[Rfam]
RNA: Group II catalytic intron D1-D4-1
Organism: Dysgonamonadaceae bacterium
RNA sequence: CAAGAAAUGCAACGAUGUAUUUUACGCCUUACAAGAAGUCAGCAGAGGACAUAGUAUUCCGGAGCAGGAACAGCACGGAAGAAGGUC
Numbered sequence: 001c002a003a004g005a006a007a008u009g010c011a012a013c014g015a016u017g018u019a020u021u022u023u024a025c026g027c028c029u030u031a032c033a034a035g036a037a038g039u040c041a042g043c044a045g046a047g048g049a050c051a052u053a054g055u056a057u058u059c060c061g062g063a064g065c066a067g068g069a070a071c072a073g074c075a076c077g078g079a080a081g082a083a084g085g086u087c
Stems, first nucleotide, its partner, number of pairs: 001026001004023008039046002048087003057080005